[Rfam]
Annotation:
A member of the RNA family "c-di-GMP-I riboswitch aptamer" from Mangrovimicrobium sediminis, 87 nucleotides long. On this family, see Sudarsan et al., Science 2008: "Riboswitches in Eubacteria Sense the Second Messenger Cyclic Di-GMP".
RNA sequence: UCCGUACAAGGGCAAACCCAUCGAAAGGUGGGGACGCAAAGUCAACGGUCUAAGGGGCGCAGGCCCUACGACGGCGGGAUUACCGGG
Numbered sequence: 001u002c003c004g005u006a007c008a009a010g011g012g013c014a015a016a017c018c019c020a021u022c023g024a025a026a027g028g029u030g031g032g033g034a035c036g037c038a039a040a041g042u043c044a045a046c047g048g049u050c051u052a053a054g055g056g057g058c059g060c061a062g063g064c065c066c067u068a069c070g071a072c073g074g075c076g077g078g079a080u081u082a083c084c085g086g087g
Base pairs, nucleotide, nucleotide: 012037013036017032018031019030020029021028022027040081041080042079043078046076047075048072049071050070055066056065057064058063

It scores 78 bits against the family's covariance model. The base pairs follow the family's consensus structure, which is taken from published work. Taxonomically the source falls in Mangrovimicrobium (Bacteria, Gammaproteobacteria, Cellvibrionales, Halieaceae).